[Rfam]
This 40-nucleotide RNA belongs to the Rfam family "Prion pseudoknot". Rfam's curators write: This family represents a predicted pseudoknot structure found in prion protein mRNA. It has been suggested that the family has a possible effect in prion protein translation. Its family is annotated with translation in the Gene Ontology. Rfam classes the family as a cis-regulatory element.

RNA sequence: UCACGGUGGUGGUUGGGGUCAGCCCCAUGGCGGCGGCUGG
Dot-bracket structure: (((.((..................)).)))..........

The base pairs follow the family's consensus structure, which is taken from published work. Rfam's curators put it in the seed alignment. Rfam 15.1 lists 421 matches to the family in 241 species.